Annotation: The record is an 82-nucleotide sequence from Kibdelosporangium phytohabitans, which matches "SAH (S-adenosyl-L-homocysteine) riboswitch aptamer" in Rfam. Gene Ontology terms of the family: regulation of gene expression and S-adenosylhomocysteine metabolic process. The match comes from Rfam's covariance-model search (44 bits). The organism belongs to Kibdelosporangium, within Bacteria.
RNA sequence: UAGGCCGAGAGGCGCUGCAACGGACCGGACCGGUCCGCCACGCUCGGCCUGGCGUGAACGACGAGAAGGGCGCCUCCCAAAU
Numbered sequence: 001u002a003g004g005c006c007g008a009g010a011g012g013c014g015c016u017g018c019a020a021c022g023g024a025c026c027g028g029a030c031c032g033g034u035c036c037g038c039c040a041c042g043c044u045c046g047g048c049c050u051g052g053c054g055u056g057a058a059c060g061a062c063g064a065g066a067a068g069g070g071c072g073c074c075u076c077c078c079a080a081a082u
Stems, first nucleotide, its partner, number of pairs: 002050007021037006